Source information
A member of the RNA family "mir-124 microRNA precursor family" from Steatornis caripensis, 71 nucleotides long. NCBI's taxonomy places the organism under Eukaryota, Euteleostomi, Archelosauria, Dinosauria, Steatornis. Rfam links the family to the GO terms RISC complex and miRNA-mediated post-transcriptional gene silencing.
RNA sequence: AGCAUUUUGUGUUCACCGCAGACCUUGAUUUAAUGUCACGCAAUUAAGGCGUGCGGUGAAUGCCAAAGGGG
Numbered sequence: 001a002g003c004a005u006u007u008u009g010u011g012u013u014c015a016c017c018g019c020a021g022a023c024c025u026u027g028a029u030u031u032a033a034u035g036u037c038a039c040g041c042a043a044u045u046a047a048g049g050c051g052u053g054c055g056g057u058g059a060a061u062g063c064c065a066a067a068g069g070g071g
Stems, first nucleotide, its partner, number of pairs: 003069001005067002009063008018054003023049008